[Rfam]
RNA sequence: UGCUAAGGAAGUUCUGCUAAGAACGCUCACGUCCUAUGAGCAACGCAGAACGACCUACAUCCUGUAGG
Numbered sequence: 001u002g003c004u005a006a007g008g009a010a011g012u013u014c015u016g017c018u019a020a021g022a023a024c025g026c027u028c029a030c031g032u033c034c035u036a037u038g039a040g041c042a043a044c045g046c047a048g049a050a051c052g053a054c055c056u057a058c059a060u061c062c063u064g065u066a067g068g
Stems, first nucleotide, its partner, number of pairs: 011051007026040004054068005
Bacillaceae-1 RNA: a 68-nucleotide RNA sequence from Virgibacillus sp. MSP4-1.
The base pairs follow the family's consensus structure, which is taken from published work.